[Rfam]
This 77-nucleotide RNA sequence from Oryzias latipes belongs to the Rfam family "mir-30 microRNA precursor family". The family has 175 seed sequences and 3,879 matches in Rfam 15.1. A reference for the family is Mourelatos et al. (2002), "miRNPs: a novel class of ribonucleoproteins containing numerous microRNAs", Genes Dev. Pairs were carried over by alignment from the consensus structure, which was predicted with PFOLD. About the family: This family consists of the mammalian microRNA (miRNA) precursor mir-30a. The source organism's lineage runs through Eukaryota, Craniata, Clupeocephala, Acanthomorphata and Oryzias. Rfam's curators put it in the seed alignment.

RNA sequence: GGGGCUACUGUAAACAUCCUUGACUGGAAGCUGGUGUUGAUUUCUGGGGCUUUCAGUCGGAUGUUUGCAGGAGCCAA
Numbered sequence: 001g002g003g004g005c006u007a008c009u010g011u012a013a014a015c016a017u018c019c020u021u022g023a024c025u026g027g028a029a030g031c032u033g034g035u036g037u038u039g040a041u042u043u044c045u046g047g048g049g050c051u052u053u054c055a056g057u058c059g060g061a062u063g064u065u066u067g068c069a070g071g072a073g074c075c076a077a
Base pairs, nucleotide, nucleotide: 003075004074005073006072008070009069010068011067012066013065014064015063016062017061018060019059023057024056025055026054027053028052029051030050031049032048